[Rfam]
RNA sequence: GGGUUUGCUCCCUGGGGGGUGGGCUCAACCUUCUCCAGGUCCCCUCAGGCAAGCCUGGAGUAGAGGGCCAGACAUCCUGCCUGCCUGCGGAAGAGGCAUUGAACUAAGGAGCCUCACCUGGGCUGCCCUAGCCUCACAUGU
Numbered sequence: 001g002g003g004u005u006u007g008c009u010c011c012c013u014g015g016g017g018g019g020u021g022g023g024c025u026c027a028a029c030c031u032u033c034u035c036c037a038g039g040u041c042c043c044c045u046c047a048g049g050c051a052a053g054c055c056u057g058g059a060g061u062a063g064a065g066g067g068c069c070a071g072a073c074a075u076c077c078u079g080c081c082u083g084c085c086u087g088c089g090g091a092a093g094a095g096g097c098a099u100u101g102a103a104c105u106a107a108g109g110a111g112c113c114u115c116a117c118c119u120g121g122g123c124u125g126c127c128c129u130a131g132c133c134u135c136a137c138a139u140g141u
Stems, first nucleotide, its partner, number of pairs: 002055006014043004020037004065135001066133003070129002076122003089114002